[Rfam]
The record is a 107-nucleotide RNA from candidate division TM6 bacterium Zodletone_IIa, which matches "Bacteroidales small SRP" in Rfam. The base pairs follow the family's consensus structure, which is taken from published work. The source organism's lineage runs through Bacteria, Bacteria candidate phyla and Candidatus Babelota. The match comes from Rfam's covariance-model search (86 bits). The family is grouped with related families in Rfam's "SRP clan". It is annotated as a non-coding RNA gene. Gene Ontology terms of the family: SRP-dependent cotranslational protein targeting to membrane, signal sequence recognition and signal recognition particle, plasma membrane targeting.
RNA sequence: UGCAGCCGGCAGGCCUUACGCGGCCAGCUCCUGCUGAACCUCCCCAGGGCAGGAAUGCAGCAAGGAUAAGCGGUUGUAGCGGUGCGAUGUGAGAAGCCUGCCAUUUU
Dot-bracket structure: .......(((((((.(((((((((.........................................................)).)).)))))...))))))).....